Background
Small nucleolar RNA SNORD89: a 114-nucleotide RNA from Chiloscyllium punctatum. On this family, see Huttenhofer et al., EMBO J 2001: "RNomics: an experimental approach that identifies 201 candidates for novel, small, non-messenger RNAs in mouse". Rfam's curators write: snoRNA HBII-289 belongs to the family of C/D snoRNAs. It is the human orthologue of the mouse MBII-289 and has no identified RNA target. The family has 18 seed sequences and 642 matches in Rfam 15.1. It is annotated as a C/D-box small nucleolar RNA. The organism belongs to Chiloscyllium, within Eukaryota. A search with the family's covariance model found it, with a score of 87 bits.
RNA sequence: CCGGAGGGAUGAUGACAGUGAAAGGCCGAAUUGCAGUGUUUUCACCAGCAGUUUGUUCUCGGUGUGCAGCACGAUGACAAAACUCCUUGAAGCGACCAUUAGUCUGACCUCCAA
Numbered sequence: 001c002c003g004g005a006g007g008g009a010u011g012a013u014g015a016c017a018g019u020g021a022a023a024g025g026c027c028g029a030a031u032u033g034c035a036g037u038g039u040u041u042u043c044a045c046c047a048g049c050a051g052u053u054u055g056u057u058c059u060c061g062g063u064g065u066g067c068a069g070c071a072c073g074a075u076g077a078c079a080a081a082a083c084u085c086c087u088u089g090a091a092g093c094g095a096c097c098a099u100u101a102g103u104c105u106g107a108c109c110u111c112c113a114a
Stems, first nucleotide, its partner, number of pairs: 003112005014104003025034002035100004041095002043092001046089003051072002054068003058064001073086001076083001